Rfam assigns this 177-nucleotide RNA sequence to the family "malK-I RNA". It is one of the family's seed sequences. By type it is a cis-regulatory element.

[Rfam]
RNA sequence: UCCCAGCGGCGUGCGGCACUCCACUUUAUGGCGCCCGCCGGCAAAAGAUAAGGAGGAAUACCCGCUGUGGCUGGCGGUGCGGCAAUGUGGAGACUUGUCGUAAAGCACACAAGGGGCACAGCCCCGUGCGAGACUGCUCAUGCGGAGGCAGGGCAGUUACAGUCAAGACGUAUGGCA
Numbered sequence: 001u002c003c004c005a006g007c008g009g010c011g012u013g014c015g016g017c018a019c020u021c022c023a024c025u026u027u028a029u030g031g032c033g034c035c036c037g038c039c040g041g042c043a044a045a046a047g048a049u050a051a052g053g054a055g056g057a058a059u060a061c062c063c064g065c066u067g068u069g070g071c072u073g074g075c076g077g078u079g080c081g082g083c084a085a086u087g088u089g090g091a092g093a094c095u096u097g098u099c100g101u102a103a104a105g106c107a108c109a110c111a112a113g114g115g116g117c118a119c120a121g122c123c124c125c126g127u128g129c130g131a132g133a134c135u136g137c138u139c140a141u142g143c144g145g146a147g148g149c150a151g152g153g154c155a156g157u158u159a160c161a162g163u164c165a166a167g168a169c170g171u172a173u174g175g176c177a
Base pairs, nucleotide, nucleotide: 007040008039009038010037011036013034014033015032017030018029062077063076064075065074068165069164070163071162072161073160078102079101080100081099082098083097084096085095087094088093105129106128107127108126113125114124115123132158133157134156135155136154137153138152139151141150142149143148